The record is a 250-nucleotide RNA sequence from Miscanthus lutarioriparius, which matches "MIR6217 microRNA precursor family" in Rfam.
[Rfam]
RNA sequence: UGGCUAUAAAAUAACUUAUUCUGUAGCCACUUUGAGUUACGAUAAUUACUAUGUUAAUUCAUGAGAUUAUAGUAACUCCUUACUAUAUGAUUUAUUAUAACGUACUAUAUGAUUUAUUAUAACGUUAUGGUAAAUAUCCUCAUGUGUUAUAGUAACACAACUAUCGUAAAUAUGUAUUCACUUUAUCGUAAAUUAGUAUAUAAAAUUAUCGUAAAUGGAGGUGGCUACAGAAUAACUUAUUAUAUGGCCA
Numbered sequence: 001u002g003g004c005u006a007u008a009a010a011a012u013a014a015c016u017u018a019u020u021c022u023g024u025a026g027c028c029a030c031u032u033u034g035a036g037u038u039a040c041g042a043u044a045a046u047u048a049c050u051a052u053g054u055u056a057a058u059u060c061a062u063g064a065g066a067u068u069a070u071a072g073u074a075a076c077u078c079c080u081u082a083c084u085a086u087a088u089g090a091u092u093u094a095u096u097a098u099a100a101c102g103u104a105c106u107a108u109a110u111g112a113u114u115u116a117u118u119a120u121a122a123c124g125u126u127a128u129g130g131u132a133a134a135u136a137u138c139c140u141c142a143u144g145u146g147u148u149a150u151a152g153u154a155a156c157a158c159a160a161c162u163a164u165c166g167u168a169a170a171u172a173u174g175u176a177u178u179c180a181c182u183u184u185a186u187c188g189u190a191a192a193u194u195a196g197u198a199u200a201u202a203a204a205a206u207u208a209u210c211g212u213a214a215a216u217g218g219a220g221g222u223g224g225c226u227a228c229a230g231a232a233u234a235a236c237u238u239a240u241u242a243u244a245u246g247g248c249c250a
Stems, first nucleotide, its partner, number of pairs: 001250008010241005016235018037214011050200010061189002065187003069183001072179001074177001080169004087164003091160002093154011

Background: NCBI's taxonomy places the organism under Eukaryota, Streptophyta, Liliopsida, Saccharinae, Miscanthus. The base pairs follow the family's consensus structure, which was predicted with RNAalifold. Gene Ontology terms of the family: RISC complex and miRNA-mediated post-transcriptional gene silencing. A search with the family's covariance model found it, with a score of 156 bits.